[Rfam]
Shown here is an 88-nucleotide RNA sequence from Crotophaga sulcirostris, a member of the family "Small nucleolar RNA SNORD70".
RNA sequence: UGAGCUGUUGUCAAUGAUGGAUUCUUGUUGAACAUGAAUAUAAAUGAUUUGAGUCAACAUUUCGUCACUACCACUGAGACAACAGACA
Numbered sequence: 001u002g003a004g005c006u007g008u009u010g011u012c013a014a015u016g017a018u019g020g021a022u023u024c025u026u027g028u029u030g031a032a033c034a035u036g037a038a039u040a041u042a043a044a045u046g047a048u049u050u051g052a053g054u055c056a057a058c059a060u061u062u063c064g065u066c067a068c069u070a071c072c073a074c075u076g077a078g079a080c081a082a083c084a085g086a087c088a
Stems, first nucleotide, its partner, number of pairs: 001088002005085008
It scores 82 bits against the family's covariance model. Rfam's curators write: snoRNA HBII-234 belongs to the C/D family of snoRNAs. It is the human orthologue of the mouse MBII-234 and is predicted to guide 2'O-ribose methylation of the small 18S rRNA on position A512. It is hosted, together with HBII-95, by the core C/D box snoRNA protein encoding gene NOP5/NOP58. Rfam links the family to the GO terms RNA processing and nucleolus.